[Rfam]
RNA sequence: UUGCAAGGGCGUGUGGUGGAUGCCUUGGCAGACAGGACCGAUGAAGGACGUGUGGGGCCGCGAUAGGCCUCGGGGAGCCGCCGACAGGGCUUUGAUCCGAGGAUUUCCGAAUGGGGGAACCCGCCAGCCGUCAUGGGCUGGCACCGGCUUGGCCGGGGGGUACGCAGGGAAGUGAAACAUCUCAGUACCUGCAGGAGAGGACACUCCGUGAGUAGUGGCGAGCGAAAGCGGAUCAGGCUAAACCGUGUGCGUGUGAUACCCGUCGGGGGUUGCGUGUGCGGUGUUGUGGGAGCGUGUGCGCCGGUCCCGACGGGCCGGCCGGCGGUGAGAAAUCCAUGUGCUAGGGGAACCGGGUUGGAUACCGGGCCGUAGAGGGUGAUGGCCCCGUACCCGAAUGCGCGUGGACCGUCGAUCGUGUUUUCCCGAGUAGCGCGGGUCCCGUGGAACCCCGUGUGAAUCCGCCCCGACCGUGGGGCAAGCCUAAGUAUUCCUGUCUGACCGAUAGCGUACUAGUACCGUGAGGGAAAGGUGAAAAGCACCCCGGGAGGGGAGUGAAAGAGUUCCUGAAACCGUGCGCCUACGAU
Numbered sequence: 001u002u003g004c005a006a007g008g009g010c011g012u013g014u015g016g017u018g019g020a021u022g023c024c025u026u027g028g029c030a031g032a033c034a035g036g037a038c039c040g041a042u043g044a045a046g047g048a049c050g051u052g053u054g055g056g057g058c059c060g061c062g063a064u065a066g067g068c069c070u071c072g073g074g075g076a077g078c079c080g081c082c083g084a085c086a087g088g089g090c091u092u093u094g095a096u097c098c099g100a101g102g103a104u105u106u107c108c109g110a111a112u113g114g115g116g117g118a119a120c121c122c123g124c125c126a127g128c129c130g131u132c133a134u135g136g137g138c139u140g141g142c143a144c145c146g147g148c149u150u151g152g153c154c155g156g157g158g159g160g161u162a163c164g165c166a167g168g169g170a171a172g173u174g175a176a177a178c179a180u181c182u183c184a185g186u187a188c189c190u191g192c193a194g195g196a197g198a199g200g201a202c203a204c205u206c207c208g209u210g211a212g213u214a215g216u217g218g219c220g221a222g223c224g225a226a227a228g229c230g231g232a233u234c235a236g237g238c239u240a241a242a243c244c245g246u247g248u249g250c251g252u253g254u255g256a257u258a259c260c261c262g263u264c265g266g267g268g269g270u271u272g273c274g275u276g277u278g279c280g281g282u283g284u285u286g287u288g289g290g291a292g293c294g295u296g297u298g299c300g301c302c303g304g305u306c307c308c309g310a311c312g313g314g315c316c317g318g319c320c321g322g323c324g325g326u327g328a329g330a331a332a333u334c335c336a337u338g339u340g341c342u343a344g345g346g347g348a349a350c351c352g353g354g355u356u357g358g359a360u361a362c363c364g365g366g367c368c369g370u371a372g373a374g375g376g377u378g379a380u381g382g383c384c385c386c387g388u389a390c391c392c393g394a395a396u397g398c399g400c401g402u403g404g405a406c407c408g409u410c411g412a413u414c415g416u417g418u419u420u421u422c423c424c425g426a427g428u429a430g431c432g433c434g435g436g437u438c439c440c441g442u443g444g445a446a447c448c449c450c451g452u453g454u455g456a457a458u459c460c461g462c463c464c465c466g467a468c469c470g471u472g473g474g475g476c477a478a479g480c481c482u483a484a485g486u487a488u489u490c491c492u493g494u495c496u497g498a499c500c501g502a503u504a505g506c507g508u509a510c511u512a513g514u515a516c517c518g519u520g521a522g523g524g525a526a527a528g529g530u531g532a533a534a535a536g537c538a539c540c541c542c543g544g545g546a547g548g549g550g551a552g553u554g555a556a557a558g559a560g561u562u563c564c565u566g567a568a569a570c571c572g573u574g575c576g577c578c579u580a581c582g583a584u
Stems, first nucleotide, its partner, number of pairs: 007579010022564001023529002027500002029497007036489002038159002046108003049062003068102007077090003113122003123142007144156005163194001164192005174181002204485001205232005215223002235482004243281011288424003292418005333405009344392003350365004368372001374386003430454007461476005516523002539550004

This 584-nucleotide part of an RNA from Bifidobacterium reuteri belongs to the Rfam family "Bacterial large subunit ribosomal RNA".